[Rfam]
Overview: Shown here is an 83-nucleotide RNA, a member of the family "RAGATH-12 RNA". The family's consensus secondary structure is taken from published work. It is annotated as a small RNA. The sequence is in the family's curated seed alignment.
RNA sequence: AAGUAGCACUUAUAGGAACUGUCUGGUGAGCACACGAAAGUGUGAAUUUAAUCAUAGCGCUAAUUAAAUCCUGCUAUGGGGUA
Numbered sequence: 001a002a003g004u005a006g007c008a009c010u011u012a013u014a015g016g017a018a019c020u021g022u023c024u025g026g027u028g029a030g031c032a033c034a035c036g037a038a039a040g041u042g043u044g045a046a047u048u049u050a051a052u053c054a055u056a057g058c059g060c061u062a063a064u065u066a067a068a069u070c071c072u073g074c075u076a077u078g079g080g081g082u083a
Base pairs, nucleotide, nucleotide: 031044032043033042034041035040053078054077055076056075057074